Rfam assigns this 74-nucleotide sequence from Candidatus Mycosynbacter amalyticus to the family "tRNA".
Rfam classes the family as a transfer RNA.
Rfam links the family to the GO term triplet codon-amino acid adaptor activity.
[Rfam]
RNA sequence: GGCACCGUAGCUCAGUUGGUUAGAGCGCAGGACUCAUAAGCCUGAGGUCACAAGUUCAAUUCUUGUCGGUGCUA
Numbered sequence: 001g002g003c004a005c006c007g008u009a010g011c012u013c014a015g016u017u018g019g020u021u022a023g024a025g026c027g028c029a030g031g032a033c034u035c036a037u038a039a040g041c042c043u044g045a046g047g048u049c050a051c052a053a054g055u056u057c058a059a060u061u062c063u064u065g066u067c068g069g070u071g072c073u074a
Stems, first nucleotide, its partner, number of pairs: 001073007010026004028044004050066005